RNA sequence: CCAAGUCCCGACGCUCACCCCCCCCGGCGCCGGGACUCUCCCAGAGCCGGACUUCGGCGCCCCUCCCCCCGGGCGCCGGGGUCCGGCUCUUUU
Numbered sequence: 001c002c003a004a005g006u007c008c009c010g011a012c013g014c015u016c017a018c019c020c021c022c023c024c025c026g027g028c029g030c031c032g033g034g035a036c037u038c039u040c041c042c043a044g045a046g047c048c049g050g051a052c053u054u055c056g057g058c059g060c061c062c063c064u065c066c067c068c069c070c071g072g073g074c075g076c077c078g079g080g081g082u083c084c085g086g087c088u089c090u091u092u093u
Stems, first nucleotide, its partner, number of pairs: 005036006012029003044089010055078008